[Rfam]
RNA sequence: GGCAUACAUCAAGAGUCGGGCAAUGCCUGACGCCAACCUGCUUCCCGAGCAAGGUGGCGCCCUCUGGCGAGGGGAUGUGGUCGAACCGACAACCAAACGGGUCCCG
Numbered sequence: 001g002g003c004a005u006a007c008a009u010c011a012a013g014a015g016u017c018g019g020g021c022a023a024u025g026c027c028u029g030a031c032g033c034c035a036a037c038c039u040g041c042u043u044c045c046c047g048a049g050c051a052a053g054g055u056g057g058c059g060c061c062c063u064c065u066g067g068c069g070a071g072g073g074g075a076u077g078u079g080g081u082c083g084a085a086c087c088g089a090c091a092a093c094c095a096a097a098c099g100g101g102u103c104c105c106g
Stems, first nucleotide, its partner, number of pairs: 006078005015031001017029005032058003037054003040050003045101002080090004
Notes: Rfam assigns this 106-nucleotide sequence from Sphingobium jiangsuense to the family "SAM-I/IV (S-adenosyl methionine) riboswitch aptamer". For this family Rfam cites "Structural basis for diversity in the SAM clan of riboswitches" (Trausch et al., PNAS, 2014). The family has 417 seed sequences and 567 matches in Rfam 15.1. The source organism's lineage runs through Bacteria, Pseudomonadati, Sphingomonadales, Sphingobiaceae and Sphingobium. A search with the family's covariance model found it, with a score of 56 bits. Clan: SAM clan. Pairs were carried over by alignment from the consensus structure, which is taken from published work.